A member of the RNA family "SAM riboswitch aptamer (S box leader)" from Peptoclostridium acidaminophilum, 104 nucleotides long. The organism belongs to Peptoclostridium acidaminophilum, within Bacteria. Gene Ontology term of the family: regulation of gene expression.
RNA sequence: ACCUUAUCAAGAGUGGUUGAGGGACAGGCCCUAUGAAACCCGGCAACAGCCAGCUAGUCUGGAAAUGUGCUAAAUCCUGCAGAAUUCGUUCUGGAAGAUGAGGU
Numbered sequence: 001a002c003c004u005u006a007u008c009a010a011g012a013g014u015g016g017u018u019g020a021g022g023g024a025c026a027g028g029c030c031c032u033a034u035g036a037a038a039c040c041c042g043g044c045a046a047c048a049g050c051c052a053g054c055u056a057g058u059c060u061g062g063a064a065a066u067g068u069g070c071u072a073a074a075u076c077c078u079g080c081a082g083a084a085u086u087c088g089u090u091c092u093g094g095a096a097g098a099u100g101a102g103g104u
Base pairs, nucleotide, nucleotide: 001104002103003102004101005100006099007098008097013041015040016039017038021031022030023029025079026078027077028076042071043070044069045068047067048066050062051061052060075096080093081092082091083090084089